[Rfam]
RNA: TPP riboswitch aptamer (THI element)
RNA sequence: ACCCAAGGUUGGGGGUGCUUGCAACAGCAGGCUGAGAUCAUACCCUAAGAACCUGAACCGGGUAAAACCGGCGUAGGGAAACCAGGUUGGCAGGGA
Number, nucleotide and partner (000 for none) at each position: 001a000002c000003c000004c000005a000006a000007g083008g082009u081010u080011g046012g045013g044014g043015g000016u040017g032018c031019u030020u029021g028022c000023a000024a000025c000026a000027g000028c021029a020030g019031g018032c017033u000034g000035a000036g000037a000038u000039c000040a016041u000042a000043c014044c013045c012046u011047a000048a000049g000050a000051a000052c077053c076054u075055g074056a000057a000058c071059c070060g069061g068062g000063u000064a000065a000066a000067a000068c061069c060070g059071g058072c000073g000074u055075a054076g053077g052078g000079a000080a010081a009082c008083c007084a000085g000086g000087u000088u000089g000090g000091c000092a000093g000094g000095g000096a000